[Rfam]
RNA sequence: AAAGGAGCAAUAACCAAUUUCUUGUUCUAUCAAGACCAAGAGGGUGGUAUUGCUCCUUUAUUU
Numbered sequence: 001a002a003a004g005g006a007g008c009a010a011u012a013a014c015c016a017a018u019u020u021c022u023u024g025u026u027c028u029a030u031c032a033a034g035a036c037c038a039a040g041a042g043g044g045u046g047g048u049a050u051u052g053c054u055c056c057u058u059u060a061u062u063u
Base pairs, nucleotide, nucleotide: 001059002058003057004056005055006054007053008052009051010050011049012048014046019042020041021040022039023038024037

About this RNA: The record is a 63-nucleotide sequence from Cornus nuttallii, which matches "Plastid-psbA-3 3UTR RNA" in Rfam. It is annotated as a cis-regulatory element. Plastid psbA-3 is a non-coding RNA (ncRNA) present in plastids. It was identified in inverted repeat sequences in the 3 prime untranslate region (3UTR) of photosystem II quinone-binding protein (psbA). The family's consensus secondary structure was predicted with LocARNA. The literature on the family includes a 2023 paper in Plant Commun by Richter et al., "Retrograde signaling in plants: A critical review focusing on the GUN pathway and beyond". The sequence is in the family's curated seed alignment. Lineage of the source: Eukaryota > Embryophyta > Tracheophyta > Gunneridae > Cornus. Clan: Plastid-psbA 3UTR RNA clan.